[Rfam]
RNA sequence: UCGGUUGAUUAUGAGCAGGCGAUGUGCUGAAAAGCAUGUGGGGCUGGGCCCGGCAGGGCAGCGGUGUAAUUUACCCGUGGGACAUAA
Numbered sequence: 001u002c003g004g005u006u007g008a009u010u011a012u013g014a015g016c017a018g019g020c021g022a023u024g025u026g027c028u029g030a031a032a033a034g035c036a037u038g039u040g041g042g043g044c045u046g047g048g049c050c051c052g053g054c055a056g057g058g059c060a061g062c063g064g065u066g067u068a069a070u071u072u073a074c075c076c077g078u079g080g081g082a083c084a085u086a087a
Base pairs, nucleotide, nucleotide: 010086011085012084013083016081018045019044020043022039023038024037025036026035027034048059049058050057051056061078062077063076064075
Rfam assigns this 87-nucleotide RNA from Hydrogenispora ethanolica to the family "NiCo (Nickel/Cobalt) riboswitch aptamer". Gene Ontology terms of the family: metal ion homeostasis and cobalt ion binding. The organism belongs to Hydrogenispora, within Bacteria.